RNA: Manganese Mn2+ riboswitch aptamer (yybP-ykoY)
Organism: Paraburkholderia acidiphila
RNA sequence: CAUGUUAUAAUUCGCGCCUCAUUGGGGAGUAGCCGCCUCGCAUCGCGCCACAGCGCCGCGGCACGGGUCUUCGGAUCUCAGGCUUGCCGCGCGCGAAUUCGCGGGGGCGUCCGUCAACAGACUUGGCCUGCACGGCCAUGGCGGACGCAGCCUUUAUCCCGGGCCUGGCGAGACCGAUGACCCAUGACCGCCGCAAGAGGGCC
Numbered sequence: 001c002a003u004g005u006u007a008u009a010a011u012u013c014g015c016g017c018c019u020c021a022u023u024g025g026g027g028a029g030u031a032g033c034c035g036c037c038u039c040g041c042a043u044c045g046c047g048c049c050a051c052a053g054c055g056c057c058g059c060g061g062c063a064c065g066g067g068u069c070u071u072c073g074g075a076u077c078u079c080a081g082g083c084u085u086g087c088c089g090c091g092c093g094c095g096a097a098u099u100c101g102c103g104g105g106g107g108c109g110u111c112c113g114u115c116a117a118c119a120g121a122c123u124u125g126g127c128c129u130g131c132a133c134g135g136c137c138a139u140g141g142c143g144g145a146c147g148c149a150g151c152c153u154u155u156a157u158c159c160c161g162g163g164c165c166u167g168g169c170g171a172g173a174c175c176g177a178u179g180a181c182c183c184a185u186g187a188c189c190g191c192c193g194c195a196a197g198a199g200g201g202c203c
Base pairs, nucleotide, nucleotide: 037105038104039103040102041101107148108147109146110145111144112143113142114141115140116139124138125137126136127135128134